[Rfam]
RNA sequence: GUUUGUUGUCACUGUCUUUGUUGCUCCCUCUUUCGAUUAAAAUUGAGGAAACUCGCUGGCAGAAUCGAACCAAUAAUUACAAUUGCCACCACUGAGUAA
Numbered sequence: 001g002u003u004u005g006u007u008g009u010c011a012c013u014g015u016c017u018u019u020g021u022u023g024c025u026c027c028c029u030c031u032u033u034c035g036a037u038u039a040a041a042a043u044u045g046a047g048g049a050a051a052c053u054c055g056c057u058g059g060c061a062g063a064a065u066c067g068a069a070c071c072a073a074u075a076a077u078u079a080c081a082a083u084u085g086c087c088a089c090c091a092c093u094g095a096g097u098a099a
Stems, first nucleotide, its partner, number of pairs: 006099004
Rfam assigns this 99-nucleotide RNA sequence from Cannabis sativa to the family "Small nucleolar RNA R30/Z108". By type it is a C/D-box small nucleolar RNA. On this family, see Marker et al., Curr Biol 2002: "Experimental RNomics. Identification of 140 Candidates for Small Non-Messenger RNAs in the Plant Arabidopsis thaliana". Taxonomically the source falls in Cannabis (Eukaryota, Streptophytina, Pentapetalae, Cannabaceae). snoR30 is a C/D box small nucleolar RNA which acts as a methylation guide for 18S ribosomal RNA in plants. The base pairs follow the family's consensus structure, which was predicted with PFOLD.